[Rfam]
RNA sequence: UUAUCCGAGGAGCGUUGCAGCGCCGGCAGGCGUGAGGCUCGGACACACAUCGCAACCACGCUCACCCGCU
Numbered sequence: 001u002u003a004u005c006c007g008a009g010g011a012g013c014g015u016u017g018c019a020g021c022g023c024c025g026g027c028a029g030g031c032g033u034g035a036g037g038c039u040c041g042g043a044c045a046c047a048c049a050u051c052g053c054a055a056c057c058a059c060g061c062u063c064a065c066c067c068g069c070u
Base pairs, nucleotide, nucleotide: 002045004043005042006041007040008039021032022031023030024029
RNA: SAH (S-adenosyl-L-homocysteine) riboswitch aptamer
Organism: Variovorax sp. Sphag1AA